[Rfam]
RNA sequence: ACCCCCGCUAUUGUUGCUCUACUGGGUUGCGAUCGAGCUUAGCCUCGUUCAUUUUUUUAUACAACAACCCGUUAAAAAUAGAAGACAGGCCGCUCUAGCUCGUAUUUAACAGCGGUCAGAAACGGAAUAAAACGCCCUAAAUAGCGGCAAAAAAGGCCAUAUGGCGCAGUUUUAGGGCAA
Dot-bracket structure: .......................((((((.....(.(....((((.(((...(((((((.............)))))).)...)))))))).)..))))))............................................................(.((.(.......).)).)